[Rfam]
RNA sequence: UGACCAAGGGGCCGGGGCGUUCUGACCAAUGGAGUGGCUGGAGCGAACCAGGUGUACAGGGAGUACUCCCAUUCGUGGGCCGGGUCAGGCAAGCC
Numbered sequence: 001u002g003a004c005c006a007a008g009g010g011g012c013c014g015g016g017g018c019g020u021u022c023u024g025a026c027c028a029a030u031g032g033a034g035u036g037g038c039u040g041g042a043g044c045g046a047a048c049c050a051g052g053u054g055u056a057c058a059g060g061g062a063g064u065a066c067u068c069c070c071a072u073u074c075g076u077g078g079g080c081c082g083g084g085u086c087a088g089g090c091a092a093g094c095c
Stems, first nucleotide, its partner, number of pairs: 001087005010081004014049002018045001020043005026037002051069002054066004
RNA: ivy-DE RNA